Notes:
The family of this 149-nucleotide RNA from Shewanella sp. MR-7 is "Group II catalytic intron D1-D4-7". Rfam's curators put it in the seed alignment. Rfam 15.1 lists 1,296 matches to the family in 705 species. The organism belongs to Shewanella, within Bacteria. About the family: Group II introns are found in rRNA, tRNA and mRNA of organelles in fungi, plants and protists, and also in mRNA in bacteria.

[Rfam]
RNA sequence: CCUGUUGUGCAACCAGCAGUAGCCUAGGGAUAGUGCGCCACCAGUAAUGGUGGGGUGUGAAGCUUCCUGACAAUGUAUUCCCCAUUCACUGGGUUUGGUUUUACCGUGAGGUAGGCCAAAGACUUCACCAGUAGCAGGCGGAUGAGAGA
Number, nucleotide and partner (000 for none) at each position: 001c000002c019003u018004g017005u016006u015007g014008u000009g000010c000011a000012a000013c000014c007015a006016g005017c004018a003019g002020u000021a000022g000023c000024c000025u000026a000027g068028g067029g066030a065031u000032a000033g058034u057035g056036c055037g000038c053039c052040a051041c050042c049043a048044g000045u000046a000047a000048u043049g042050g041051u040052g039053g038054g000055g036056u035057g034058u033059g000060a000061a000062g000063c000064u000065u030066c029067c028068u027069g000070a000071c000072a000073a000074u000075g000076u000077a000078u000079u000080c000081c093082c092083c091084a090085u000086u000087c000088a000089c000090u084091g083092g082093g081094u120095u119096u118097g117098g000099u000100u000101u000102u000103a000104c111105c110106g000107u000108g000109a000110g105111g104112u000113a000114g000115g000116c000117c097118a096119a095120a094121g000122a000123c000124u142125u141126c140127a000128c138129c137130a000131g000132u000133a000134g000135c000136a000137g129138g128139c000140g126141g125142a124143u000144g000145a000146g000147a000148g000149a000